The family of this 501-nucleotide part of an RNA from a Theionarchaea archaeon is "Archaeal small subunit ribosomal RNA". Its Rfam clan is "SSU clan". Its family is annotated with ribosome and structural constituent of ribosome in the Gene Ontology.
[Rfam]
RNA sequence: ACCUCGGUCGAUCCUGCCGAAAGCGACUGCUAUUGGGGUUCGACUUAACCAUGCGAGUCGUGCGGACUUCGGUCAGCGGCAUACGGCUCAGUAACACGUGGGUAACCUACUCUCAGGUCGGGAAUAACUCCGGGAAACUGGAGCUAAUACCCGCUAGAUACAGGACUCUGGAAUGACUCUGUGUCCAAAGCUCCGGUGCCUGAGAAUGGGCCCGCGGCUGAUUAGGUAGUUGGUGAGGUAAUGGCCCACCAAGCCUGCGAUCGGUACGGGCAGUGAGAGCUGGAGCCCGGAGAUGGGGACUGAGACAAGGCCCCAGGCCCUACGGGGCGCAGCAGGUGCGAAAACUCCACAAUGCUCGCAAGAGCGAUGGGGGAACCCCAAGUGCCCUUGUAAUGCAAGGGCUUUUCUCUGGUGUAAGGAGCCAGAGGAAUAAGGGCUGGGUAAGACUGGUGCCAGCCGCCGCGGUAACACCAGCAGCUCGAGUGGUCGCUGUUUUUAUUG
Numbered sequence: 001a002c003c004u005c006g007g008u009c010g011a012u013c014c015u016g017c018c019g020a021a022a023g024c025g026a027c028u029g030c031u032a033u034u035g036g037g038g039u040u041c042g043a044c045u046u047a048a049c050c051a052u053g054c055g056a057g058u059c060g061u062g063c064g065g066a067c068u069u070c071g072g073u074c075a076g077c078g079g080c081a082u083a084c085g086g087c088u089c090a091g092u093a094a095c096a097c098g099u100g101g102g103u104a105a106c107c108u109a110c111u112c113u114c115a116g117g118u119c120g121g122g123a124a125u126a127a128c129u130c131c132g133g134g135a136a137a138c139u140g141g142a143g144c145u146a147a148u149a150c151c152c153g154c155u156a157g158a159u160a161c162a163g164g165a166c167u168c169u170g171g172a173a174u175g176a177c178u179c180u181g182u183g184u185c186c187a188a189a190g191c192u193c194c195g196g197u198g199c200c201u202g203a204g205a206a207u208g209g210g211c212c213c214g215c216g217g218c219u220g221a222u223u224a225g226g227u228a229g230u231u232g233g234u235g236a237g238g239u240a241a242u243g244g245c246c247c248a249c250c251a252a253g254c255c256u257g258c259g260a261u262c263g264g265u266a267c268g269g270g271c272a273g274u275g276a277g278a279g280c281u282g283g284a285g286c287c288c289g290g291a292g293a294u295g296g297g298g299a300c301u302g303a304g305a306c307a308a309g310g311c312c313c314c315a316g317g318c319c320c321u322a323c324g325g326g327g328c329g330c331a332g333c334a335g336g337u338g339c340g341a342a343a344a345c346u347c348c349a350c351a352a353u354g355c356u357c358g359c360a361a362g363a364g365c366g367a368u369g370g371g372g373g374a375a376c377c378c379c380a381a382g383u384g385c386c387c388u389u390g391u392a393a394u395g396c397a398a399g400g401g402c403u404u405u406u407c408u409c410u411g412g413u414g415u416a417a418g419g420a421g422c423c424a425g426a427g428g429a430a431u432a433a434g435g436g437c438u439g440g441g442u443a444a445g446a447c448u449g450g451u452g453c454c455a456g457c458c459g460c461c462g463c464g465g466u467a468a469c470a471c472c473a474g475c476a477g478c479u480c481g482a483g484u485g486g487u488c489g490c491u492g493u494u495u496u497u498a499u500u501g
Stems, first nucleotide, its partner, number of pairs: 004020005022491010033381009042339001048337003052334003057080003062077002065074003087292003097216007106209002111205007119153004128143006158184007167176002190197002218264003225255003230252006237245001267289004271282004294315005317328004345371001347370003353366005384402008407427007434480006447474004456463002
The organism belongs to Theionarchaea, within Archaea. Rfam 15.1 lists 709 matches to the family in 491 species. Pairs were carried over by alignment from the consensus structure, which is taken from published work.